Rfam assigns this 141-nucleotide sequence from Monodelphis domestica to the family "U4 spliceosomal RNA". Lineage of the source: Eukaryota > Eumetazoa > Gnathostomata > Amniota > Monodelphis. About the family: U4 small nuclear RNA (U4 snRNA) is a component of the major U2-dependent spliceosome.
RNA sequence: CGCUUUGCACAGUGGCUGUAUCCUAGCCAAUGAGGCUUAACCAAGGUGGGAUUCUUGCUAAUUAAAAUGCAUAUACUACAGCAGGGAUCAGGCUUGUUUACCUGACUCUUAGGUUAUAUUUAGCUUUAGAUUAGUGAUCUU
Numbered sequence: 001c002g003c004u005u006u007g008c009a010c011a012g013u014g015g016c017u018g019u020a021u022c023c024u025a026g027c028c029a030a031u032g033a034g035g036c037u038u039a040a041c042c043a044a045g046g047u048g049g050g051a052u053u054c055u056u057g058c059u060a061a062u063u064a065a066a067a068u069g070c071a072u073a074u075a076c077u078a079c080a081g082c083a084g085g086g087a088u089c090a091g092g093c094u095u096g097u098u099u100a101c102c103u104g105a106c107u108c109u110u111a112g113g114u115u116a117u118a119u120u121u122a123g124c125u126u127u128a129g130a131u132u133a134g135u136g137a138u139c140u141u
Base pairs, nucleotide, nucleotide: 020052021051022050023049024048026047027046028045034042035041080114082112083110084109085108086107088105089104090103091102092101

A search with the family's covariance model found it, with a score of 52 bits.